[Rfam]
RNA sequence: ACGCAGUGCGAAGGGCCACCUCAGCGACCCCCCCCUUGUGGUGCCCCCACCACAUCCCCCACCCGCUCCUCGCUGGGCGAAAGUCCCCGGGCUCCCAGGCAGAAAGUGCCACCCCGAAAGGGCAGGACCUCCGCCCGCCCCUGCCCCCACCAGGGGCAGCGCGGCGGCGGAGCAGCUAGCCAUAGCGACAGUUAUGUGUGCCAGCCGCGCCCUCGCCCCCCAGGCGGCGCGCGCGCCAACACAACGGGGCUUACUCUCGCGCUGACG
Numbered sequence: 001a002c003g004c005a006g007u008g009c010g011a012a013g014g015g016c017c018a019c020c021u022c023a024g025c026g027a028c029c030c031c032c033c034c035c036u037u038g039u040g041g042u043g044c045c046c047c048c049a050c051c052a053c054a055u056c057c058c059c060c061a062c063c064c065g066c067u068c069c070u071c072g073c074u075g076g077g078c079g080a081a082a083g084u085c086c087c088c089g090g091g092c093u094c095c096c097a098g099g100c101a102g103a104a105a106g107u108g109c110c111a112c113c114c115c116g117a118a119a120g121g122g123c124a125g126g127a128c129c130u131c132c133g134c135c136c137g138c139c140c141c142u143g144c145c146c147c148c149a150c151c152a153g154g155g156g157c158a159g160c161g162c163g164g165c166g167g168c169g170g171a172g173c174a175g176c177u178a179g180c181c182a183u184a185g186c187g188a189c190a191g192u193u194a195u196g197u198g199u200g201c202c203a204g205c206c207g208c209g210c211c212c213u214c215g216c217c218c219c220c221c222a223g224g225c226g227g228c229g230c231g232c233g234c235g236c237c238a239a240c241a242c243a244a245c246g247g248g249g250c251u252u253a254c255u256c257u258c259g260c261g262c263u264g265a266c267g
Base pairs, nucleotide, nucleotide: 002267003266004264005263006262007261008260009259010258011257014202015201016200017198018197019196021076022075023074024073025072026071027070038053039052040051041050042049043048081252082251083250085249086248087247088246098110099109100108101107113122114121115120125173131170132169133168134167135166138163140161141159142158143157144156145155146154147153204236205235207234208233209232210231
The record is a 267-nucleotide RNA sequence from Micractinium conductrix, which matches "RNase MRP" in Rfam. Rfam classes the family as a ribozyme. A search with the family's covariance model found it, with a score of 65 bits. Rfam links the family to the GO terms rRNA processing, ribonuclease MRP activity and ribonuclease MRP complex. The base pairs follow the family's consensus structure, which is taken from published work.